[Rfam]
RNA: Glycine riboswitch aptamer
RNA sequence: CGAUGCCGUGCGGGAGAGACCCUGCUGCAGCCCCCGGGCUGCGCGGGGCGCCGAAGGAGCAACACCUCUCCGUCAAUCUCUCAGGCACCCGGGACCGCACGAGCUGC
Numbered sequence: 001c002g003a004u005g006c007c008g009u010g011c012g013g014g015a016g017a018g019a020c021c022c023u024g025c026u027g028c029a030g031c032c033c034c035c036g037g038g039c040u041g042c043g044c045g046g047g048g049c050g051c052c053g054a055a056g057g058a059g060c061a062a063c064a065c066c067u068c069u070c071c072g073u074c075a076a077u078c079u080c081u082c083a084g085g086c087a088c089c090c091g092g093g094a095c096c097g098c099a100c101g102a103g104c105u106g107c
Stems, first nucleotide, its partner, number of pairs: 007101007020048006050086003053082002057080003064073002